RNA sequence: UCAAUGCAAGGAUGAAUACUAUAAAAUUACACAUGUUAGACUACUGAGAUGGACACCAUCGAUGAGUAGGCUUCUUUAUUCUGAGCAUAAC
Numbered sequence: 001u002c003a004a005u006g007c008a009a010g011g012a013u014g015a016a017u018a019c020u021a022u023a024a025a026a027u028u029a030c031a032c033a034u035g036u037u038a039g040a041c042u043a044c045u046g047a048g049a050u051g052g053a054c055a056c057c058a059u060c061g062a063u064g065a066g067u068a069g070g071c072u073u074c075u076u077u078a079u080u081c082u083g084a085g086c087a088u089a090a091c
Base pairs, nucleotide, nucleotide: 004088005087006086007085048060049059050058051057
Record summary:
Small nucleolar RNA R64/Z200 family: a 91-nucleotide RNA from Taxus chinensis. By type it is a C/D-box small nucleolar RNA. Rfam links the family to the GO terms RNA processing and nucleolus. A reference for the family is Galardi et al. (2002), "Purified box C/D snoRNPs are able to reproduce site-specific 2'-O-methylation of target RNA in vitro", Mol Cell Biol. The match comes from Rfam's covariance-model search (58 bits).